Rfam assigns this 466-nucleotide sequence from Erwinia sp. OLSSP12 to the family "cspA thermoregulator". It scores 128 bits against the family's covariance model. A reference for the family is Giuliodori et al. (2010), "The cspA mRNA is a thermosensor that modulates translation of the cold-shock protein CspA", Mol Cell. Rfam links the family to the GO terms response to temperature stimulus and regulation of translation. It is annotated as an RNA thermoregulator.

[Rfam]
RNA sequence: ACGAGGUACAGUUCUGUUUAUGUAUGGCAUUUCAGUAAAGAAGUCUCGAGUACAGACGUUGACGUUGAAUACCGCUUCCUUGCCGAACCUUAAUUAGUGCCUCAUUCAGUAAUGUCUCUGGUUUCUCUAUCAGUACAGCCUUCGGGCAAAAAAUACACUCUAAGGAAUUUGCAAAAUGGCAAAAAUUAAAGGUCAGGUUAAGUGGUUCAACGAGUCUAAAGGCUUCGGUUUCAUUACGCCGGCUGACGGCAGCAAAGACGUUUUCGUUCACUUCUCUGCUAUUCAGGGUAACGGCUUCAAAACCCUGGCUGAAGGUCAGAACGUAGAGUUCGAAAUUCAGGAUGGCCAGAAAGGUCCGGCUGCUGUGAACGUGACCGCAAUCUGAUGCGCUGACGCGCGGGUCUUAACCGGCCGGCGUGUGCGUCUCUGAUAAAGAAAGUCCUGUCAGCAUGGCAGGGCUUUUUUA
Numbered sequence: 001a002c003g004a005g006g007u008a009c010a011g012u013u014c015u016g017u018u019u020a021u022g023u024a025u026g027g028c029a030u031u032u033c034a035g036u037a038a039a040g041a042a043g044u045c046u047c048g049a050g051u052a053c054a055g056a057c058g059u060u061g062a063c064g065u066u067g068a069a070u071a072c073c074g075c076u077u078c079c080u081u082g083c084c085g086a087a088c089c090u091u092a093a094u095u096a097g098u099g100c101c102u103c104a105u106u107c108a109g110u111a112a113u114g115u116c117u118c119u120g121g122u123u124u125c126u127c128u129a130u131c132a133g134u135a136c137a138g139c140c141u142u143c144g145g146g147c148a149a150a151a152a153a154u155a156c157a158c159u160c161u162a163a164g165g166a167a168u169u170u171g172c173a174a175a176a177u178g179g180c181a182a183a184a185a186u187u188a189a190a191g192g193u194c195a196g197g198u199u200a201a202g203u204g205g206u207u208c209a210a211c212g213a214g215u216c217u218a219a220a221g222g223c224u225u226c227g228g229u230u231u232c233a234u235u236a237c238g239c240c241g242g243c244u245g246a247c248g249g250c251a252g253c254a255a256a257g258a259c260g261u262u263u264u265c266g267u268u269c270a271c272u273u274c275u276c277u278g279c280u281a282u283u284c285a286g287g288g289u290a291a292c293g294g295c296u297u298c299a300a301a302a303c304c305c306u307g308g309c310u311g312a313a314g315g316u317c318a319g320a321a322c323g324u325a326g327a328g329u330u331c332g333a334a335a336u337u338c339a340g341g342a343u344g345g346c347c348a349g350a351a352a353g354g355u356c357c358g359g360c361u362g363c364u365g366u367g368a369a370c371g372u373g374a375c376c377g378c379a380a381u382c383u384g385a386u387g388c389g390c391u392g393a394c395g396c397g398c399g400g401g402u403c404u405u406a407a408c409c410g411g412c413c414g415g416c417g418u419g420u421g422c423g424u425c426u427c428u429g430a431u432a433a434a435g436a437a438a439g440u441c442c443u444g445u446c447a448g449c450a451u452g453g454c455a456g457g458g459c460u461u462u463u464u465u466a
Stems, first nucleotide, its partner, number of pairs: 004019005025241002028238001030236001039231001042230004046222002054217004063212006071206003077178001080174004088165005096128002099125001138147003180192001245337002257265002268326001270324002273321001275320004279315002283308005343358003359405001362402001363400005408429001410427001414425004435463012